[Rfam]
RNA sequence: CCACCCGGAAGCGCGAUGAUGUACAGGUGGUAAGUUGGUCGCUUAGCCUGUACGGAGCGAGUAGCGAAACCGCCUUCCUCCAUA
Number, nucleotide and partner (000 for none) at each position: 001c000002c000003a000004c000005c000006c000007g078008g077009a076010a075011g074012c059013g058014c057015g000016a000017u000018g000019a000020u000021g053022u052023a051024c050025a049026g048027g047028u046029g000030g000031u000032a000033a000034g000035u000036u000037g071038g070039u067040c066041g065042c064043u063044u000045a000046g028047c027048c026049u025050g024051u023052a022053c021054g000055g000056a000057g014058c013059g012060a000061g000062u000063a043064g042065c041066g040067a039068a000069a000070c038071c037072g000073c000074c011075u010076u009077c008078c007079u000080c000081c000082a000083u000084a000
Shown here is an 84-nucleotide sequence from Brevibacillus sp. SYP-B805, a member of the family "c-di-GMP-II-GAG riboswitch aptamer". A search with the family's covariance model found it, with a score of 41 bits. NCBI's taxonomy places the organism under Bacteria, Bacilli, Caryophanales, Paenibacillaceae, Brevibacillus. The family is grouped with related families in Rfam's "c-di-GMP_II riboswitch clan".